[Rfam]
RNA: PreQ1 (pre queuosine) riboswitch aptamer
RNA sequence: ACGGGAGAGGUUCUUAGCUUAAACCCUCUAUAAAAAACUAAGGACAU
Numbered sequence: 001a002c003g004g005g006a007g008a009g010g011u012u013c014u015u016a017g018c019u020u021a022a023a024c025c026c027u028c029u030a031u032a033a034a035a036a037a038c039u040a041a042g043g044a045c046a047u
Base pairs, nucleotide, nucleotide: 006029007028008027009026010025015040016039